RNA sequence: CCCUGACAGGAGCAUCCCGCGCCUGACAUAGCCAAGACAGGAGACUCAUAUG
Numbered sequence: 001c002c003c004u005g006a007c008a009g010g011a012g013c014a015u016c017c018c019g020c021g022c023c024u025g026a027c028a029u030a031g032c033c034a035a036g037a038c039a040g041g042a043g044a045c046u047c048a049u050a051u052g
Stems, first nucleotide, its partner, number of pairs: 002041004007025004
Mu-gpT-DE RNA: a 52-nucleotide RNA sequence. It is annotated as a small RNA.